[Rfam]
RNA sequence: GGUAUUGUUUACCCCAUUUUUGUGGCCCCGGAACCCAAAAAUAAUCCGCGGGACUCUUACACCCGCAUUUGUAAACAAAUU
Numbered sequence: 001g002g003u004a005u006u007g008u009u010u011a012c013c014c015c016a017u018u019u020u021u022g023u024g025g026c027c028c029c030g031g032a033a034c035c036c037a038a039a040a041a042u043a044a045u046c047c048g049c050g051g052g053a054c055u056c057u058u059a060c061a062c063c064c065g066c067a068u069u070u071g072u073a074a075a076c077a078a079a080u081u
Stems, first nucleotide, its partner, number of pairs: 006077007016042007024035002